[Rfam]
The record is a 137-nucleotide sequence from Albula goreensis, which matches "U11 spliceosomal RNA" in Rfam. Lineage of the source: Eukaryota > Eumetazoa > Actinopteri > Albulidae > Albula. It is annotated as a spliceosomal small nuclear RNA. The family is grouped with related families in Rfam's "U1 clan". Its family is annotated with mRNA 5'-splice site recognition, U11 snRNP and pre-mRNA 5'-splice site binding in the Gene Ontology. A reference for the family is Montzka and Steitz (1988), "Additional low-abundance human small nuclear ribonucleoproteins: U11, U12, etc", Proc Natl Acad Sci U S A.
RNA sequence: AAAAAGGGCGUAUACCAUGACUGGUACAGGGAAGGGGCGGGACACCGUUCCAUCUUUGCGGAAUCGACAUCAAGAGAUUUCGGACGCAUAAUUUUUGUUACAUCGGGCUGCUGAUGACCGACUGUCUUAGCGCCCCC
Dot-bracket structure: .......((((.(((((....)))))((((((.(((((........))))).))))))(((((((..........))))))).)))).................((((.(((((.(((.....))))))))))))..
Numbered sequence: 001a002a003a004a005a006g007g008g009c010g011u012a013u014a015c016c017a018u019g020a021c022u023g024g025u026a027c028a029g030g031g032a033a034g035g036g037g038c039g040g041g042a043c044a045c046c047g048u049u050c051c052a053u054c055u056u057u058g059c060g061g062a063a064u065c066g067a068c069a070u071c072a073a074g075a076g077a078u079u080u081c082g083g084a085c086g087c088a089u090a091a092u093u094u095u096u097g098u099u100a101c102a103u104c105g106g107g108c109u110g111c112u113g114a115u116g117a118c119c120g121a122c123u124g125u126c127u128u129a130g131c132g133c134c135c136c137c
Stems, first nucleotide, its partner, number of pairs: 008087004013026005027058006034051005059082007105135004110131005116126003